[Rfam]
RNA sequence: GGACCCCAGAAGUCAGGCGUGGGUGUAGCCUGUUUCCAAGCUGCCAGGCGACCCACUCUUGAUUUCAGGGGUUC
Numbered sequence: 001g002g003a004c005c006c007c008a009g010a011a012g013u014c015a016g017g018c019g020u021g022g023g024u025g026u027a028g029c030c031u032g033u034u035u036c037c038a039a040g041c042u043g044c045c046a047g048g049c050g051a052c053c054c055a056c057u058c059u060u061g062a063u064u065u066c067a068g069g070g071g072u073u074c
Stems, first nucleotide, its partner, number of pairs: 002073006009066006016059002021054004028049004
mir-551 microRNA precursor family: a 74-nucleotide RNA sequence from Albula glossodonta. Rfam 15.1 lists 1,097 matches to the family in 627 species. Pairs were carried over by alignment from the consensus structure, which was predicted with RNAalifold. Taxonomically the source falls in Albula (Eukaryota, Chordata, Craniata, Gnathostomata). Its family is annotated with RISC complex and miRNA-mediated post-transcriptional gene silencing in the Gene Ontology.